[Rfam]
RNA sequence: CAUUUAUCAGUGAUGUUCCAUAACAAAUGUCUGAACAUAUGACAUCCGCUGAUUUCGCUUUGUGACUGAGAUAAAUG
Numbered sequence: 001c002a003u004u005u006a007u008c009a010g011u012g013a014u015g016u017u018c019c020a021u022a023a024c025a026a027a028u029g030u031c032u033g034a035a036c037a038u039a040u041g042a043c044a045u046c047c048g049c050u051g052a053u054u055u056c057g058c059u060u061u062g063u064g065a066c067u068g069a070g071a072u073a074a075a076u077g
Stems, first nucleotide, its partner, number of pairs: 002076007
RNA: Small nucleolar RNA SNORD72